[Rfam]
Source information
The record is an 83-nucleotide RNA from Parnassius apollo, which matches "mir-2765 microRNA precursor family" in Rfam. Rfam 15.1 lists 109 matches to the family in 106 species. A search with the family's covariance model found it, with a score of 89 bits.

RNA sequence: GACGUAAUUGGGCCUGGUAACUCCACCACCGUUGGCGUUUACAUAUUGCCAACGGGGGCAGAGUUCCUGCUCCUAGUUGCGAG
Numbered sequence: 001g002a003c004g005u006a007a008u009u010g011g012g013c014c015u016g017g018u019a020a021c022u023c024c025a026c027c028a029c030c031g032u033u034g035g036c037g038u039u040u041a042c043a044u045a046u047u048g049c050c051a052a053c054g055g056g057g058g059c060a061g062a063g064u065u066c067c068u069g070c071u072c073c074u075a076g077u078u079g080c081g082a083g
Stems, first nucleotide, its partner, number of pairs: 003081010016068002019065005026058002029055009